Nucleotides: 093
Base pairs, nucleotide, nucleotide: 006081007080008079009078010077011044012043013042014041016038017030018029019028020027021026049074050073051072052071056067057066058065
Number, partner (000 for none) and nucleotide at each position: 001000g002000g003000u004000a005000a006081c007080u008079g009078u010077u011044a012043g013042g014041g015000g016038u017030g018029c019028u020027c021026c022000u023000u024000u025000g026021g027020g028019g029018g030017c031000u032000g033000a034000g035000a036000a037000u038016a039000c040000a041014c042013c043012c044011u045000u046000a047000c048000a049074c050073c051072u052071g053000a054000a055000a056067u057066g058065u059000u060000u061000a062000a063000u064000a065058a066057c067056a068000g069000c070000g071052u072051a073050g074049g075000g076000a077010a078009a079008c080007a081006g082000u083000c084000u085000u086000u087000c088000a089000a090000u091000g092000a093000c

The record is a 93-nucleotide RNA from Marinilabilia rubra, which matches "TPP riboswitch aptamer (THI element)" in Rfam. The organism belongs to Marinilabilia, within Bacteria. The family's consensus secondary structure is taken from published work.